[Rfam]
RNA sequence: AUCGUUCAUUCUUCUAGAUCGAAGAACGGAAGUAGGGAAACUCCCGAAGGAACGCGCC
Numbered sequence: 001a002u003c004g005u006u007c008a009u010u011c012u013u014c015u016a017g018a019u020c021g022a023a024g025a026a027c028g029g030a031a032g033u034a035g036g037g038a039a040a041c042u043c044c045c046g047a048a049g050g051a052a053c054g055c056g057c058c
Base pairs, nucleotide, nucleotide: 003054004053005052006051007050009026010025011024012023013022029055035045036044037043
Glutamine riboswitch aptamer (glnA leader): a 58-nucleotide RNA from Pleurocapsales cyanobacterium LEGE 10410.
The base pairs follow the family's consensus structure, which is taken from published work.
On this family, see Ames and Breaker, RNA Biol 2011: "Bacterial aptamers that selectively bind glutamine".